Record summary:
Guanidine-II riboswitch aptamer (mini-ykkC): a 44-nucleotide RNA sequence from Senna tora.

[Rfam]
RNA sequence: AUCGUGGGACGACCCACGAUGCACGAGAUCGUGGGACGACCCAC
Dot-bracket structure: ((((((((....))))))))..........(((((....)))))
The organism belongs to Senna, within Eukaryota.